[Rfam]
RNA sequence: CUCUGGGAACGCAAAGGGCUCAGGGCGGAAAGAG
Numbered sequence: 001c002u003c004u005g006g007g008a009a010c011g012c013a014a015a016g017g018g019c020u021c022a023g024g025g026c027g028g029a030a031a032g033a034g
Stems, first nucleotide, its partner, number of pairs: 001025005011019002
RNA: L31-Firmicutes ribosomal protein leader
Organism: Paenibacillus assamensis